[Rfam]
RNA: Small nucleolar RNA SNORD90
RNA sequence: AAUUUCCUUUUUGGUGUCUUGUGAUGAAGCUGCAUAGGGCAGAUUCUGAGUUGAGAAAUAAAAUUUCUCUCCACUGAUCCUCUCUAUAUGCCAUCUGAAGACACUGUAUGUU
Dot-bracket structure: ...........((((((((.........(..((((.(((..(..((.(.(..(((((.......)))))..).).)))..)))....))))..)....))))))))......